Rfam assigns this 58-nucleotide sequence from Camelus ferus to the family "mir-139 microRNA precursor family".
The source organism's lineage runs through Eukaryota, Metazoa, Laurasiatheria, Artiodactyla and Camelus.
Pairs were carried over by alignment from the consensus structure, which was predicted with RNAalifold.
A search with the family's covariance model found it, with a score of 55 bits.
Rfam 15.1 lists 598 matches to the family in 559 species.
Nucleotides: 058
Stems, first nucleotide, its partner, number of pairs: 006054004010049004015044002018042006027035003
Number, partner (000 for none) and nucleotide at each position: 001000g002000u003000g004000u005000a006054u007053u008052c009051u010049a011048c012047a013046g014000u015044g016043c017000a018042c019041g020040u021039g022038u023037c024000u025000c026000c027035a028034g029033u030000g031000u032000g033029g034028c035027u036000c037023g038022g039021c040020g041019c042018g043016g044015c045000c046013c047012u048011g049010u050000u051009g052008g053007a054006g055000u056000a057000a058000c